[Rfam]
RNA sequence: UUGGAAUGAUGCAACUUAGCCAAAUCAGACAAUGAUGUGCUCCAUUAGCCAUGUUCUUCUAAGUUUGUUCUUUAAAACUUGAGCAAGCUUUGGAGUUAAAAAUGACUUUUGUAGAAGCGCAUCCAUCUGGUGAUAAAUUAGAGAAAUGGUUCUUAGCUGACCAAA
Numbered sequence: 001u002u003g004g005a006a007u008g009a010u011g012c013a014a015c016u017u018a019g020c021c022a023a024a025u026c027a028g029a030c031a032a033u034g035a036u037g038u039g040c041u042c043c044a045u046u047a048g049c050c051a052u053g054u055u056c057u058u059c060u061a062a063g064u065u066u067g068u069u070c071u072u073u074a075a076a077a078c079u080u081g082a083g084c085a086a087g088c089u090u091u092g093g094a095g096u097u098a099a100a101a102a103u104g105a106c107u108u109u110u111g112u113a114g115a116a117g118c119g120c121a122u123c124c125a126u127c128u129g130g131u132g133a134u135a136a137a138u139u140a141g142a143g144a145a146a147u148g149g150u151u152c153u154u155a156g157c158u159g160a161c162c163a164a165a
Stems, first nucleotide, its partner, number of pairs: 001164004
RNA: small nucleolar RNA snoR127